[Rfam]
RNA: Drosophila small cajal body-specific RNA PsiU6-40
Organism: Drosophila gunungcola
RNA sequence: UCCGGAUAAACCCUUAAUUUAUGCGAACUUGCUGAACAUUACUUCCAAUUCGUCGCAAUAUGGCCAUAUCCCAGAACAAAGAACAGGAACUCUGUGCAAUGGCAUUAAAGCUUGUGACAUUGCAUCGUUCUUCCUGCGACAUUU
Numbered sequence: 001u002c003c004g005g006a007u008a009a010a011c012c013c014u015u016a017a018u019u020u021a022u023g024c025g026a027a028c029u030u031g032c033u034g035a036a037c038a039u040u041a042c043u044u045c046c047a048a049u050u051c052g053u054c055g056c057a058a059u060a061u062g063g064c065c066a067u068a069u070c071c072c073a074g075a076a077c078a079a080a081g082a083a084c085a086g087g088a089a090c091u092c093u094g095u096g097c098a099a100u101g102g103c104a105u106u107a108a109a110g111c112u113u114g115u116g117a118c119a120u121u122g123c124a125u126c127g128u129u130c131u132u133c134c135u136g137c138g139a140c141a142u143u144u
Base pairs, nucleotide, nucleotide: 004071005070006069007068008067012063013062015060016059022057023056024055025054026050027049033047034046038043078143079142081140084136085135086134087133088132089131092127094125095124096123097122098121099120100119101118103116104115105114
Dot-bracket structure: ...(((((...((.((.....((((((.....((...(....)..)).))...)))).)).))...)))))......((.(..((((((..(.((((((((.(((........))).)))))))).)...))))))...).)).